The record is a 36-nucleotide sequence from Marmota monax, which matches "XIST RNA A repeat" in Rfam. Pairs were carried over by alignment from the consensus structure, which was predicted with CMfinder. Rfam classes the family as a small RNA.
Nucleotides: 036
Base pairs, nucleotide, nucleotide: 003014004013005012006011017026018025019024
Number, partner (000 for none) and nucleotide at each position: 001000u002000a003014g004013c005012c006011c007000a008000u009000c010000g011006g012005g013004g014003c015000c016000c017026c018025g019024g020000a021000u022000a023000c024019c025018u026017g027000g028000c029000a030000u031000a032000u033000u034000u035000u036000u